[Rfam]
RNA: FMN riboswitch aptamer (RFN element)
Organism: Acetobacter vaccinii
RNA sequence: UGACGUUCUCAGGGCAGGGUGCAAAUCCCUACCGGCGGUAAGCAGUGUGCCUUUGCACUGUAAGCCCGCGAGCGCCCGUUUUGGCGGGGUCAGCAGAUCCGGUGUAAUUCCGGAGCCGACGGUGACAGUCCGGAUGAGAGAGAACGAAG
Numbered sequence: 001u002g003a004c005g006u007u008c009u010c011a012g013g014g015c016a017g018g019g020u021g022c023a024a025a026u027c028c029c030u031a032c033c034g035g036c037g038g039u040a041a042g043c044a045g046u047g048u049g050c051c052u053u054u055g056c057a058c059u060g061u062a063a064g065c066c067c068g069c070g071a072g073c074g075c076c077c078g079u080u081u082u083g084g085c086g087g088g089g090u091c092a093g094c095a096g097a098u099c100c101g102g103u104g105u106a107a108u109u110c111c112g113g114a115g116c117c118g119a120c121g122g123u124g125a126c127a128g129u130c131c132g133g134a135u136g137a138g139a140g141a142g143a144a145c146g147a148a149g
Base pairs, nucleotide, nucleotide: 004146005145006144007143008142009141010140017029018028019027031129032128033118034117035069036068037067038066064116065115072094073093098114099113100112101111102110120132121131122130